[Rfam]
Small nucleolar RNA snR191: a 273-nucleotide sequence from Ogataea arabinofermentans. By type it is an H/ACA-box small nucleolar RNA. Rfam links the family to the GO terms nucleolus and RNA processing. On this family, see Badis et al., RNA 2003: "A snoRNA that guides the two most conserved pseudouridine modifications within rRNA confers a growth advantage in yeast".
Nucleotides: 273
Stems, first nucleotide, its partner, number of pairs: 003088005019075004026068002101178005108141001110139006117131005148164007183267004188262004198253004205246004209236006
Number, partner (000 for none) and nucleotide at each position: 001000c002000a003088c004087c005086a006085a007084a008000g009000u010000u011000u012000u013000u014000u015000g016000u017000c018000a019075g020074g021073a022072c023000u024000u025000u026068c027067u028000c029000a030000u031000u032000c033000u034000a035000u036000a037000c038000u039000c040000u041000u042000c043000a044000a045000g046000a047000g048000u049000g050000u051000u052000a053000g054000a055000u056000c057000a058000u059000u060000a061000c062000a063000a064000u065000a066000u067027g068026g069000u070000u071000u072022g073021u074020c075019u076000g077000u078000u079000a080000c081000a082000a083000c084007u085006u086005u087004g088003g089000a090000a091000g092000a093000u094000c095000a096000a097000u098000u099000u100000a101178u102177c103176a104175c105174c106000g107000c108141u109000u110139u111138u112137g113136u114135u115134c116000a117131u118130u119129c120128c121127c122000g123000u124000u125000a126000u127121g128120g129119g130118a131117a132000a133000u134115g135114a136113a137112u138111g139110a140000u141108a142000c143000c144000u145000g146000u147000u148164g149163a150162u151161c152160u153159c154158g155000u156000u157000u158154u159153g160152a161151g162150a163149u164148c165000g166000g167000c168000u169000a170000c171000u172000u173000a174105g175104g176103u177102g178101a179000c180000u181000u182000g183267u184266g185265g186264g187000a188262u189261c190260u191259u192000a193000u194000g195000a196000g197000u198253u199252g200251a201250a202000c203000a204000u205246c206245u207244u208243c209236u210235g211234c212233u213232g214231g215000c216000c217000u218000u219000u220000a221000u222000u223000g224000g225000u226000u227000u228000u229000a230000u231214u232213c233212a234211g235210c236209a237000u238000u239000u240000c241000a242000u243208g244207a245206a246205g247000a248000u249000u250201u251200u252199c253198g254000u255000a256000g257000u258000a259191a260190a261189g262188a263000a264186c265185c266184c267183a268000a269000c270000a271000a272000c273000c